[Rfam]
The family of this 99-nucleotide RNA sequence from Zingiber officinale is "mir-36 microRNA precursor family".
It scores 48 bits against the family's covariance model.
The family has 46 seed sequences and 199 matches in Rfam 15.1.
Taxonomically the source falls in Zingiber (Eukaryota, Streptophyta, Euphyllophyta, commelinids).
On this family, see Ohler et al., RNA 2004: "Patterns of flanking sequence conservation and a characteristic upstream motif for microRNA gene identification".
Gene Ontology terms of the family: miRNA-mediated post-transcriptional gene silencing and RISC complex.

RNA sequence: UAUAUAUAUAUGACCACAAAUCCAGUAAGGUCCCACUGGUGAUAUAUAUAUAUAUAUAUAUAUCACCAGUGGGACCUUACUGGAUUUGUGGCCUUAUAU
Dot-bracket structure: ...............(((((((.((((((((((((((.((((((................)))))).)))))))))))))).)))))))..........